Description: FMN riboswitch aptamer (RFN element): a 119-nucleotide RNA from Mannheimia haemolytica.

[Rfam]
RNA sequence: UUUAAUCUUCAGGGCAGGGUGAAAUUCCCGAUCGGCGGUAAAGUCCGCGAGCCGAGCAAUCGGCAGGAUUUGGUGAAAUUCCAAAACCGACAGUAUAGUCUGGAUGAAAGAAGAGUCAA
Numbered sequence: 001u002u003u004a005a006u007c008u009u010c011a012g013g014g015c016a017g018g019g020u021g022a023a024a025u026u027c028c029c030g031a032u033c034g035g036c037g038g039u040a041a042a043g044u045c046c047g048c049g050a051g052c053c054g055a056g057c058a059a060u061c062g063g064c065a066g067g068a069u070u071u072g073g074u075g076a077a078a079u080u081c082c083a084a085a086a087c088c089g090a091c092a093g094u095a096u097a098g099u100c101u102g103g104a105u106g107a108a109a110g111a112a113g114a115g116u117c118a119a
Base pairs, nucleotide, nucleotide: 004116006114007113008112009111010110017029018028019027031099032098033089034088035048036047037046038045043087044086069085070084071083072082073081091102092101093100